A member of the RNA family "chrB-a RNA" from Rhizobium sp. SEMIA4064, 78 nucleotides long. The organism belongs to Rhizobium, within Bacteria. It scores 69 bits against the family's covariance model.
RNA sequence: AGUAUGGGGUUUGCGAAUACCCCACGAGGCGUCAUGCCGGAGUUUCGCGUCCAUCUCUUUUGGAAGGGACGUAACAUG
Numbered sequence: 001a002g003u004a005u006g007g008g009g010u011u012u013g014c015g016a017a018u019a020c021c022c023c024a025c026g027a028g029g030c031g032u033c034a035u036g037c038c039g040g041a042g043u044u045u046c047g048c049g050u051c052c053a054u055c056u057c058u059u060u061u062g063g064a065a066g067g068g069a070c071g072u073a074a075c076a077u078g
Base pairs, nucleotide, nucleotide: 005024006023007022008021009020010019047072048071049070050069051068052067
By type it is a cis-regulatory element.